[Rfam]
Shown here is an 88-nucleotide RNA sequence from Candidatus Accumulibacter aalborgensis, a member of the family "Glycine riboswitch aptamer". Pairs were carried over by alignment from the consensus structure. Lineage of the source: Bacteria > Pseudomonadati > Pseudomonadota > Betaproteobacteria > Candidatus Accumulibacter. A search with the family's covariance model found it, with a score of 61 bits. This family represents the bacterial glycine riboswitch. Rfam links the family to the GO term glycine biosynthetic process.
RNA sequence: GCGACGCGAAUGGGAGAGCGCGGCAAAUGCCACCGCCGAAGGCGCAAUCCACCCGGAAACGCUCAGGCAAAAGGACCUUUCGUGCAAG
Numbered sequence: 001g002c003g004a005c006g007c008g009a010a011u012g013g014g015a016g017a018g019c020g021c022g023g024c025a026a027a028u029g030c031c032a033c034c035g036c037c038g039a040a041g042g043c044g045c046a047a048u049c050c051a052c053c054c055g056g057a058a059a060c061g062c063u064c065a066g067g068c069a070a071a072a073g074g075a076c077c078u079u080u081c082g083u084g085c086a087a088g
Stems, first nucleotide, its partner, number of pairs: 006083005012077002020033001022031002035068003038064002042062003048056002